[Rfam]
RNA sequence: AGGCAUCCCCUUUGCCUGAUUACGAUGGCUAUGGAGGUGUAACUUUAGCUCGAAGAGUAAAUCUUCUGCUCUUAAGAUUAUCUGUGGUGGAGGUUCCUUGAAGCUGGUCUAGUAGUCUUAAGAACAUU
Dot-bracket structure: ..(((.((((.(.(((..........))).).)).)))))......................(((..(.(....(((((..((..((.......)).....))..)))))....).)..)))......
RNA: Small nucleolar RNA snoR77